[Rfam]
RNA sequence: GGGCUCUUAAAAAAGCAAUCGUUGUAUAAAUUAUACAUUUAACGCUCCCUUUCAACUUGUUUGGAAGGGGGCUUUCUAUUUUU
Numbered sequence: 001g002g003g004c005u006c007u008u009a010a011a012a013a014a015g016c017a018a019u020c021g022u023u024g025u026a027u028a029a030a031u032u033a034u035a036c037a038u039u040u041a042a043c044g045c046u047c048c049c050u051u052u053c054a055a056c057u058u059g060u061u062u063g064g065a066a067g068g069g070g071g072c073u074u075u076c077u078a079u080u081u082u083u
Stems, first nucleotide, its partner, number of pairs: 044072012